[Rfam]
RNA sequence: CUUUUAAUACUUAAAUUACACACAUAUAUCGACACAUGCUCCGGGGUGCCUGACGGGUUUGACUCAACGGGUCGGUGGCAUGGGAUAUAUGGAGGCGUAAC
Numbered sequence: 001c002u003u004u005u006a007a008u009a010c011u012u013a014a015a016u017u018a019c020a021c022a023c024a025u026a027u028a029u030c031g032a033c034a035c036a037u038g039c040u041c042c043g044g045g046g047u048g049c050c051u052g053a054c055g056g057g058u059u060u061g062a063c064u065c066a067a068c069g070g071g072u073c074g075g076u077g078g079c080a081u082g083g084g085a086u087a088u089a090u091g092g093a094g095g096c097g098u099a100a101c
Base pairs, nucleotide, nucleotide: 023091024090025089026088027087028086029085030084035082036081037080038079039078041075042074043073048072049071050070051069052068
RNA: t44 RNA
Organism: Aliidiomarina soli